The family of this 95-nucleotide sequence from Dethiosulfatarculus sandiegensis is "Glycine riboswitch aptamer".

RNA sequence: CAACUCCUGGAAAGAGUCUGGCUUUUUGUUCAGACCGCCGACGGGGCAAGGCCCAAGUGGUCAAUCUCUCAGGCACACAUGACAGGAGGGGGCUU
Number, nucleotide and partner (000 for none) at each position: 001c000002a000003a000004c088005u087006c086007c085008u084009g083010g000011a000012a000013a000014g000015a000016g035017u034018c033019u032020g000021g000022c000023u000024u000025u000026u000027u000028g000029u000030u000031c000032a019033g018034a017035c016036c000037g074038c073039c072040g070041a069042c000043g000044g068045g067046g066047c000048a000049a000050g000051g061052c060053c000054c000055a000056a000057g000058u000059g000060g052061u051062c000063a000064a000065u000066c046067u045068c044069u041070c040071a000072g039073g038074c037075a000076c000077a000078c000079a000080u000081g000082a000083c009084a008085g007086g006087a005088g004089g000090g000091g000092g000093c000094u000095u000